[Rfam]
Nucleotides: 071
Stems, first nucleotide, its partner, number of pairs: 001070007010024004026042005047063003051059001
Number, partner (000 for none) and nucleotide at each position: 001070u002069g003068a004067g005066g006065u007064u008000u009000c010024g011023u012022a013021c014000a015000u016000c017000g018000g019000u020000a021013g022012u023011a024010c025000g026042u027041c028040a029039g030038g031000u032000u033000u034000u035000g036000g037000u038030c039029c040028u041027g042026a043000a044000a045000a046000g047063g048062g049061u050000g051059g052000u053000u054000c055000g056000a057000u058000u059051c060000a061049a062048u063047c064007a065006a066005c067004c068003u069002c070001a071000a
The record is a 71-nucleotide RNA from Spirosoma profusum, which matches "tRNA" in Rfam. Lineage of the source: Bacteria > Pseudomonadati > Cytophagia > Cytophagaceae > Spirosoma. By type it is a transfer RNA. The match comes from Rfam's covariance-model search (49 bits).